A member of the RNA family "Selenocysteine transfer RNA" from Youngiibacter fragilis, 93 nucleotides long. The match comes from Rfam's covariance-model search (73 bits). Its Rfam clan is "tRNA clan". The family's consensus secondary structure is taken from published work.

[Rfam]
RNA sequence: GGGAGCGGAUGGAUACUGGCGUAUUCUGUGGUCUUCAAAACCAUUUCGGGGUGUUUGAACCAUCCUGGGUAGGUUCGAUUCCUACACGCUCCC
Number, nucleotide and partner (000 for none) at each position: 001g093002g092003g091004a090005g089006c088007g087008g085009a000010u000011g026012g025013a024014u023015a022016c021017u000018g000019g000020c000021g016022u015023a014024u013025u012026c011027u000028g044029u043030g042031g041032u040033c000034u000035u000036c000037a000038a000039a000040a032041c031042c030043a029044u028045u000046u000047c067048g066049g065050g064051g063052u000053g000054u000055u000056u000057g000058a000059a000060c000061c000062a000063u051064c050065c049066u048067g047068g000069g000070u084071a083072g082073g081074u000075u000076c000077g000078a000079u000080u000081c073082c072083u071084a070085c008086a000087c007088g006089c005090u004091c003092c002093c001